[Rfam]
RNA sequence: GCAGGAGAGGUUCUAGAAAAACCCUCUAUAAAAAACUAAGGCAGC
Numbered sequence: 001g002c003a004g005g006a007g008a009g010g011u012u013c014u015a016g017a018a019a020a021a022c023c024c025u026c027u028a029u030a031a032a033a034a035a036c037u038a039a040g041g042c043a044g045c
Base pairs, nucleotide, nucleotide: 006027007026008025009024010023016037